[Rfam]
RNA sequence: GUUGGCAAGUGAUGUGAUUGUGAAAUCUUAAUCCUACACACCGAAAUUUUGUGUGGACUAAAACUCCGCUUAUUAACUGAUGCCCCU
Numbered sequence: 001g002u003u004g005g006c007a008a009g010u011g012a013u014g015u016g017a018u019u020g021u022g023a024a025a026u027c028u029u030a031a032u033c034c035u036a037c038a039c040a041c042c043g044a045a046a047u048u049u050u051g052u053g054u055g056g057a058c059u060a061a062a063a064c065u066c067c068g069c070u071u072a073u074u075a076a077c078u079g080a081u082g083c084c085c086c087u
Stems, first nucleotide, its partner, number of pairs: 004084004
Shown here is an 87-nucleotide sequence from Phoenix dactylifera, a member of the family "Small nucleolar RNA R16". NCBI's taxonomy places the organism under Eukaryota, Spermatophyta, Liliopsida, Petrosaviidae, Phoenix. A search with the family's covariance model found it, with a score of 72 bits. Pairs were carried over by alignment from the consensus structure, which was predicted with PFOLD. For this family Rfam cites "Purified box C/D snoRNPs are able to reproduce site-specific 2'-O-methylation of target RNA in vitro" (Galardi et al., Mol Cell Biol, 2002).